The record is an 89-nucleotide sequence from Lymphocryptovirus humangamma4, which matches "mir-BART5 microRNA precursor family" in Rfam. Rfam 15.1 lists 7 matches to the family in 4 species. The sequence is in the family's curated seed alignment.
[Rfam]
RNA sequence: GCUCUGUGGCACCUCAAGGUGAAUAUAGCUGCCCAUCGACGUAUCGCUGGAAACCGGUGGGCCGCUGUUCACCUAAAGUGACGCAAGGU
Numbered sequence: 001g002c003u004c005u006g007u008g009g010c011a012c013c014u015c016a017a018g019g020u021g022a023a024u025a026u027a028g029c030u031g032c033c034c035a036u037c038g039a040c041g042u043a044u045c046g047c048u049g050g051a052a053a054c055c056g057g058u059g060g061g062c063c064g065c066u067g068u069u070c071a072c073c074u075a076a077a078g079u080g081a082c083g084c085a086a087g088g089u
Stems, first nucleotide, its partner, number of pairs: 001089003005085004010080003014076001016074001018073007027066003031062008